[Rfam]
RNA: Glycine riboswitch aptamer
Organism: Devosia litorisediminis
RNA sequence: CAACUCUGGAAAGCGGAUCGGCAUAUUGCCGGGUCCCACCGAAGGAGCAACCGGCGCUCAGCCGGGAAAUCUCUCAGGUGAUCAGGACAGAGGGGGCACG
Numbered sequence: 001c002a003a004c005u006c007u008g009g010a011a012a013g014c015g016g017a018u019c020g021g022c023a024u025a026u027u028g029c030c031g032g033g034u035c036c037c038a039c040c041g042a043a044g045g046a047g048c049a050a051c052c053g054g055c056g057c058u059c060a061g062c063c064g065g066g067a068a069a070u071c072u073c074u075c076a077g078g079u080g081a082u083c084a085g086g087a088c089a090g091a092g093g094g095g096g097c098a099c100g
Base pairs, nucleotide, nucleotide: 001095004092005091006090007089008088015036016035017034018033038079039078040077041075042074045073046072047071051066052065